[Rfam]
RNA sequence: AAUGAAGCGCACACGGUGGAUGCCUAGGCAGCCAGAGGCGAUGAAAGACGUGGUAGCCUGCGAUAAGGCUCGGUGAGGUGGCAACAACCUGUGACCCGGGCAUUUCUGAAUGGGGAAACCCACCGAUCAUAAGAUCGGUAUCGUAUCCUGAAUACAUAGGGAUACGAGGCGAACCAGGGGAACUGAAACAUCUAAGUACCCUGAGGAAAAGAAAUCAACCGAGAUUCCCCUAGUAGCGGCGAGCGAACGGGGACCAGCCCUUAAGCGUAUGACUGAUUAGGCGAACACGCUGGGAAGCGUGGCCGUAGCGGGUGAUAGCCCCGUAGUCGAAAGUCUGAAUACGUGAAAUCGAGUAGGUCGGGGCACGAGAAACCUUGACUGAAGACGGGGGGACCAUCCUCCAAGGCUAAAUACUCCUGGCUGACCGAUAGUGAACCAGUACCGUGAGGGAAAGGCGAAAAGAACCCCGGAGAGGGGAGUGAAAUAGAUCCUGAAACCGUGUGCGUACAAG
Number, nucleotide and partner (000 for none) at each position: 001a000002a000003u000004g000005a000006a000007g506008c505009g504010c503011a502012c501013a500014c499015g498016g497017u000018g000019g000020a000021u000022g491023c455024c454025u000026a000027g426028g425029c423030a422031g421032c420033c419034a418035g417036a415037g414038g170039c169040g000041a000042u000043g000044a000045a000046a107047g106048a105049c062050g061051u060052g000053g000054u000055a000056g000057c000058c000059u000060g051061c050062g049063a000064u000065a000066a000067g000068g101069c100070u099071c098072g097073g096074u000075g000076a000077g089078g088079u087080g000081g000082c000083a000084a000085c000086a000087a079088c078089c077090u000091g000092u000093g000094a000095c000096c073097c072098g071099g070100g069101c068102a000103u000104u000105u048106c047107u046108g000109a000110a000111u000112g121113g120114g119115g000116a000117a000118a000119c114120c113121c112122a139123c138124c137125g136126a135127u134128c133129a000130u000131a000132a000133g128134a127135u126136c125137g124138g123139u122140a000141u167142c166143g165144u164145a163146u162147c161148c160149u159150g000151a000152a000153u000154a000155c000156a000157u000158a000159g149160g148161g147162a146163u145164a144165c143166g142167a141168g000169g039170c038171g000172a000173a000174c205175c203176a202177g201178g200179g199180g000181a000182a000183c000184u000185g192186a191187a000188a000189c000190a000191u186192c185193u000194a000195a000196g000197u000198a000199c179200c178201c177202u176203g175204a000205g174206g000207a000208a000209a000210a000211g000212a000213a000214a000215u222216c221217a000218a000219c000220c000221g216222a215223g000224a000225u411226u253227c252228c251229c250230c249231u000232a000233g000234u000235a000236g244237c243238g000239g000240c000241g000242a000243g237244c236245g000246a000247a000248c000249g230250g229251g228252g227253a226254c000255c000256a408257g407258c406259c405260c000261u000262u000263a000264a000265g344266c343267g342268u341269a340270u000271g000272a000273c337274u000275g335276a334277u333278u332279a000280g328281g327282c326283g000284a000285a000286c301287a300288c299289g298290c297291u000292g000293g000294g000295a000296a000297g290298c289299g288300u287301g286302g000303c000304c308305g000306u000307a000308g304309c000310g322311g321312g320313u000314g000315a000316u000317a000318g000319c000320c312321c311322c310323g000324u000325a000326g282327u281328c280329g000330a000331a000332a278333g277334u276335c275336u000337g273338a000339a000340u269341a268342c267343g266344u265345g000346a000347a000348a000349u000350c000351g000352a000353g000354u000355a000356g380357g379358u378359c377360g376361g375362g374363g373364c000365a000366c000367g000368a000369g000370a000371a000372a000373c363374c362375u361376u360377g359378a358379c357380u356381g000382a000383a000384g000385a000386c000387g402388g401389g400390g399391g398392g000393a000394c000395c000396a000397u000398c391399c390400u389401c388402c387403a000404a000405g259406g258407c257408u256409a000410a000411a225412u000413a000414c037415u036416c000417c035418u034419g033420g032421c031422u030423g029424a000425c028426c027427g000428a000429u000430a000431g000432u000433g000434a000435a000436c000437c000438a000439g000440u000441a000442c449443c448444g000445u000446g000447a000448g443449g442450g000451a000452a000453a000454g024455g023456c000457g000458a000459a000460a000461a000462g000463a000464a000465c477466c476467c475468c474469g000470g000471a000472g000473a000474g468475g467476g466477g465478a000479g000480u000481g000482a000483a000484a000485u000486a000487g000488a000489u000490c000491c022492u000493g000494a000495a000496a000497c016498c015499g014500u013501g012502u011503g010504c009505g008506u007507a000508c000509a000510a000511g000
Bacterial large subunit ribosomal RNA: a 511-nucleotide part of an RNA from Halovibrio variabilis. Rfam links the family to the GO terms ribosome and structural constituent of ribosome. The source organism's lineage runs through Bacteria, Pseudomonadota, Gammaproteobacteria, Oceanospirillales and Halovibrio. The base pairs follow the family's consensus structure, which is taken from published work. The match comes from Rfam's covariance-model search (2864 bits).